[Rfam]
RNA sequence: AGCCUCCUGGUGCUUAUGAGGCUAUGUUCUUAUACUGUAUAGAAAGAGGAGGCAGAGUAAACCCAUCCAUAUACACCUGAGCCCAGGUCCUUUGUCUGGUCUGUAUUGUGAAUGGGGAACAUCA
Numbered sequence: 001a002g003c004c005u006c007c008u009g010g011u012g013c014u015u016a017u018g019a020g021g022c023u024a025u026g027u028u029c030u031u032a033u034a035c036u037g038u039a040u041a042g043a044a045a046g047a048g049g050a051g052g053c054a055g056a057g058u059a060a061a062c063c064c065a066u067c068c069a070u071a072u073a074c075a076c077c078u079g080a081g082c083c084c085a086g087g088u089c090c091u092u093u094g095u096c097u098g099g100u101c102u103g104u105a106u107u108g109u110g111a112a113u114g115g116g117g118a119a120c121a122u123c124a
Stems, first nucleotide, its partner, number of pairs: 002053007025034003066116005080102002083099006
Dot-bracket structure: .(((((((................(((....)))............)))))))............(((((.........((.((((((.....)))))).)).........)))))........
The record is a 124-nucleotide RNA from Suricata suricatta, which matches "Small nucleolar RNA SNORA51" in Rfam. From the family's description: ACA51 is a member of the H/ACA class of snoRNA that guide the sites of modification of uridines to pseudouridines. It scores 96 bits against the family's covariance model. Rfam classes the family as an H/ACA-box small nucleolar RNA. The family's consensus secondary structure was predicted with PFOLD. Its family is annotated with RNA processing and nucleolus in the Gene Ontology.